Shown here is a 585-nucleotide part of an RNA from Vibrio aquimaris, a member of the family "Bacterial small subunit ribosomal RNA".
On this family, see Cannone et al., BMC Bioinformatics 2002: "The comparative RNA web (CRW) site: an online database of comparative sequence and structure information for ribosomal, intron, and other RNAs".
It scores 1554 bits against the family's covariance model.
The family's consensus secondary structure is taken from published work.
RNA sequence: UGACGGGGGCCCGCACAAGCGGUGGAGCAUGUGGUUUAAUUCGAUGCAACGCGAAGAACCUUACCUACUCUUGACAUCCAUAGAACUUUCCAGAGAUGGAUUGGUGCCUUCGGGAACUAUGAGACAGGUGCUGCAUGGCUGUCGUCAGCUCGUGUUGUGAAAUGUUGGGUUAAGUCCCGCAACGAGCGCAACCCUUAUCCUUGUUUGCCAGCACUUCGGGUGGGAACUCCAGGGAGACUGCCGGUGAUAAACCGGAGGAAGGUGGGGACGACGUCAAGUCAUCAUGGCCCUUACGAGUAGGGCUACACACGUGCUACAAUGGCGCAUACAGAGGGCGGCCAACUUGCGAAAGUGAGCGAAUCCCAAAAAGUGCGUCGUAGUCCGGAUUGGAGUCUGCAACUCGACUCCAUGAAGUCGGAAUCGCUAGUAAUCGUGGAUCAGAAUGCCACGGUGAAUACGUUCCCGGGCCUUGUACACACCGCCCGUCACACCAUGGGAGUGGGCUGCAAAAGAAGUGGGUAGUUUAACCUUCGGGGGGACGCUCACCACUUUGUGGUUCAUGACUGGGGUGAAGUCGUAACAAGG
Numbered sequence: 001u002g003a004c005g006g007g008g009g010c011c012c013g014c015a016c017a018a019g020c021g022g023u024g025g026a027g028c029a030u031g032u033g034g035u036u037u038a039a040u041u042c043g044a045u046g047c048a049a050c051g052c053g054a055a056g057a058a059c060c061u062u063a064c065c066u067a068c069u070c071u072u073g074a075c076a077u078c079c080a081u082a083g084a085a086c087u088u089u090c091c092a093g094a095g096a097u098g099g100a101u102u103g104g105u106g107c108c109u110u111c112g113g114g115a116a117c118u119a120u121g122a123g124a125c126a127g128g129u130g131c132u133g134c135a136u137g138g139c140u141g142u143c144g145u146c147a148g149c150u151c152g153u154g155u156u157g158u159g160a161a162a163u164g165u166u167g168g169g170u171u172a173a174g175u176c177c178c179g180c181a182a183c184g185a186g187c188g189c190a191a192c193c194c195u196u197a198u199c200c201u202u203g204u205u206u207g208c209c210a211g212c213a214c215u216u217c218g219g220g221u222g223g224g225a226a227c228u229c230c231a232g233g234g235a236g237a238c239u240g241c242c243g244g245u246g247a248u249a250a251a252c253c254g255g256a257g258g259a260a261g262g263u264g265g266g267g268a269c270g271a272c273g274u275c276a277a278g279u280c281a282u283c284a285u286g287g288c289c290c291u292u293a294c295g296a297g298u299a300g301g302g303c304u305a306c307a308c309a310c311g312u313g314c315u316a317c318a319a320u321g322g323c324g325c326a327u328a329c330a331g332a333g334g335g336c337g338g339c340c341a342a343c344u345u346g347c348g349a350a351a352g353u354g355a356g357c358g359a360a361u362c363c364c365a366a367a368a369a370g371u372g373c374g375u376c377g378u379a380g381u382c383c384g385g386a387u388u389g390g391a392g393u394c395u396g397c398a399a400c401u402c403g404a405c406u407c408c409a410u411g412a413a414g415u416c417g418g419a420a421u422c423g424c425u426a427g428u429a430a431u432c433g434u435g436g437a438u439c440a441g442a443a444u445g446c447c448a449c450g451g452u453g454a455a456u457a458c459g460u461u462c463c464c465g466g467g468c469c470u471u472g473u474a475c476a477c478a479c480c481g482c483c484c485g486u487c488a489c490a491c492c493a494u495g496g497g498a499g500u501g502g503g504c505u506g507c508a509a510a511a512g513a514a515g516u517g518g519g520u521a522g523u524u525u526a527a528c529c530u531u532c533g534g535g536g537g538g539a540c541g542c543u544c545a546c547c548a549c550u551u552u553g554u555g556g557u558u559c560a561u562g563a564c565u566g567g568g569g570u571g572a573a574g575u576c577g578u579a580a581c582a583a584g585g
Base pairs, nucleotide, nucleotide: 001476002475003473004472005471007470008469009468010467011466012465013464015460016459019424020423021422022421023420024317026315027314028313029312030311031310032309033308034306035305040055041054042053043052064301065300066299067298068297069296070295077124078123079121080120081119082118083117086103089100090099091098092097105116107114108113127290128289130288131287132286133285136284137283138279139278140277141275143273144272148187149186150185151184152183153182154163155162156161166179167178168177169176193267194266195265196264198235199234200233201232202231203230208224209223212222213221214220238258239257241255242254243253244252245251321376322375323374324373325372326371327370333364334363335362338357339356343352344351345350383414388409389408390407391406392405393404394403430452431451432450433449434448435447436446479584481581484577485576489571490570491569492568494566495565496564499561500560501559502558503557504556505555506554507553508552509551510550515546516545517544518543519542520541522540523539524538525537528535529534